[Rfam]
RNA sequence: UAAAAGGCUCUUUUAAGAGCCACCCAAUCCUCCCUUAAAGAGCUUU
Dot-bracket structure: .....((((((....)))))).........................
This 46-nucleotide RNA from Gasterosteus aculeatus belongs to the Rfam family "Histone 3' UTR stem-loop". Lineage of the source: Eukaryota > Osteoglossocephalai > Neoteleostei > Eupercaria > Gasterosteus. The mRNAs of metazoan histone genes lack a poly-A tail. 3' end processing occurs at a site between a highly conserved stem-loop (modelled by this family) and a purine rich region around 20 nts downstream (the histone downstream element, or HDE).